[Rfam]
RNA sequence: AAAUGACGAGGGUAAACUAUUUGAAAAAAUAGGGCACAAAGCUAUGAGCCUAAAGCAACAUUUGCAAUGGUCGUCUGGCUGCAAUU
Dot-bracket structure: ...........((...((((((....))))))...))..((((..(((((....((((...))))...)))..)).))))......

Notes
The record is an 86-nucleotide sequence from Eubacterium sp. CAG:156, which matches "c-di-GMP-I riboswitch aptamer" in Rfam. NCBI's taxonomy places the organism under Bacteria, Bacillati, Clostridia, Eubacteriaceae, Eubacterium. A search with the family's covariance model found it, with a score of 67 bits.